[Rfam]
RNA sequence: AUCAGAAACUCUUCACACGUUAAUCUCUUAUAAGUAAAUUCCUUUUUCUCUGAAUUAGGGUAUUUCUUUAUGUCCAGA
Numbered sequence: 001a002u003c004a005g006a007a008a009c010u011c012u013u014c015a016c017a018c019g020u021u022a023a024u025c026u027c028u029u030a031u032a033a034g035u036a037a038a039u040u041c042c043u044u045u046u047u048c049u050c051u052g053a054a055u056u057a058g059g060g061u062a063u064u065u066c067u068u069u070a071u072g073u074c075c076a077g078a
Base pairs, nucleotide, nucleotide: 001031002030004028005027006026008024036065037064038063039062041060042059043058044057
RNA: Cyanobacterial functional RNA 10
Organism: Prochlorococcus marinus